[Rfam]
RNA sequence: UAAACCUAAAACAAUGAAAGCCCUUCCUCUCUUCCAUCCUUACGGCUCCUAGGCCGUGCCAGCGGGAAUCAGGUAUUACAAAAAUUA
Numbered sequence: 001u002a003a004a005c006c007u008a009a010a011a012c013a014a015u016g017a018a019a020g021c022c023c024u025u026c027c028u029c030u031c032u033u034c035c036a037u038c039c040u041u042a043c044g045g046c047u048c049c050u051a052g053g054c055c056g057u058g059c060c061a062g063c064g065g066g067a068a069u070c071a072g073g074u075a076u077u078a079c080a081a082a083a084a085u086u087a
Base pairs, nucleotide, nucleotide: 035066039062040061041058042057043056044055045054046053047052

Record summary: The family of this 87-nucleotide RNA sequence from Cytobacillus solani is "BsrC". By type it is a small RNA. On this family, see Saito et al., Gene 2008: "Novel small RNA-encoding genes in the intergenic regions of Bacillus subtilis". Rfam's curators write: The 301 nucleotide sequence from Kouji Nakamura has been trimmed to a highly conserved ~85 nucleotide long core to form this family. The organism belongs to Cytobacillus, within Bacteria.